[Rfam]
Nucleotides: 138
Base pairs, nucleotide, nucleotide: 048099049098050097051096052095053094054093055092064087065086066085067084068083069082070081106133107132108131109130110129111128112127113126116123117122
Number, partner (000 for none) and nucleotide at each position: 001000c002000g003000g004000c005000u006000a007000a008000u009000g010000c011000a012000g013000c014000a015000u016000u017000a018000u019000c020000c021000g022000g023000g024000c025000g026000a027000u028000g029000a030000g031000g032000c033000a034000g035000c036000a037000c038000a039000g040000g041000u042000u043000c044000u045000c046000c047000u048099g049098g050097c051096g052095u053094g054093u055092c056000c057000u058000g059000g060000u061000g062000c063000g064087g065086c066085a067084g068083a069082u070081g071000u072000u073000c074000c075000c076000u077000c078000c079000c080000u081070c082069a083068u084067c085066u086065g087064c088000a089000u090000g091000c092055g093054a094053u095052g096051c097050g098049c099048c100000c101000u102000c103000c104000u105000a106133g107132c108131c109130u110129c111128g112127c113126u114000u115000g116123u117122c118000g119000a120000u121000u122117g123116a124000c125000c126113g127112g128111c129110g130109a131108g132107g133106c134000u135000u136000u137000u138000u
Rfam assigns this 138-nucleotide RNA from Ensifer meliloti to the family "Rhizobiales sRNA Atu_C7". The match comes from Rfam's covariance-model search (62 bits). Taxonomically the source falls in Ensifer meliloti (Bacteria, Pseudomonadota, Alphaproteobacteria, Hyphomicrobiales). A reference for the family is Wilms et al. (2012), "Deep sequencing uncovers numerous small RNAs on all four replicons of the plant pathogen Agrobacterium tumefaciens", RNA Biol. The family's consensus secondary structure was predicted with WAR. By type it is a small RNA.